[Rfam]
UnaL2 LINE 3' element: a 55-nucleotide RNA sequence from Labeo rohita. It scores 55 bits against the family's covariance model. By type it is a cis-regulatory element.
RNA sequence: AUCUCUUAUGACUUGUAAGUUGCUUUGGAUAAAAGCAUCUGCUAAAUGUAAAUAA
Numbered sequence: 001a002u003c004u005c006u007u008a009u010g011a012c013u014u015g016u017a018a019g020u021u022g023c024u025u026u027g028g029a030u031a032a033a034a035g036c037a038u039c040u041g042c043u044a045a046a047u048g049u050a051a052a053u054a055a
Stems, first nucleotide, its partner, number of pairs: 013044001015042003021037006